[Rfam]
RNA: Bacteroidete tryptophan peptide leader RNA
RNA sequence: UUGCCAUAUCAAAAUAAGAAAAUGAAAACAUUAAUGAACAAUACUUGGUGGUGGAACAAUUUACGUCAAACGUCGUGAACUAAGCUUCCUAUGGUAUUUUCAAAACUAUAAAUAUAAAAGGCUUGUC
Numbered sequence: 001u002u003g004c005c006a007u008a009u010c011a012a013a014a015u016a017a018g019a020a021a022a023u024g025a026a027a028a029c030a031u032u033a034a035u036g037a038a039c040a041a042u043a044c045u046u047g048g049u050g051g052u053g054g055a056a057c058a059a060u061u062u063a064c065g066u067c068a069a070a071c072g073u074c075g076u077g078a079a080c081u082a083a084g085c086u087u088c089c090u091a092u093g094g095u096a097u098u099u100u101c102a103a104a105a106c107u108a109u110a111a112a113u114a115u116a117a118a119a120g121g122c123u124u125g126u127c
Base pairs, nucleotide, nucleotide: 036101037100038099041097042096043095044094045093048090050088051087053085058081060079061078062077063073064072065071